This 124-nucleotide sequence from Xenorhabdus innexi belongs to the Rfam family "Phenylalanine leader peptide". By type it is a cis-regulatory leader. The base pairs follow the family's consensus structure, which was predicted with CMfinder. Its family is annotated with cellular amino acid metabolic process in the Gene Ontology.
RNA sequence: CAUGAAUAUUAAACUGUUCUUCUCCUUUUUCUUUUUUACCUUCCUAUGAGGGGGUUUCUCGUUUGUAAAAGAUAAAAAGAAGACGAACAAGAAAACCUCCCUACCAACGGGAGGUUUUUUAUUU
Dot-bracket structure: ...............((((.(((.((((((.(((.((((..((((...))))(...).......)))).))).)))))).))).))))...((((((((((.......))))))))))......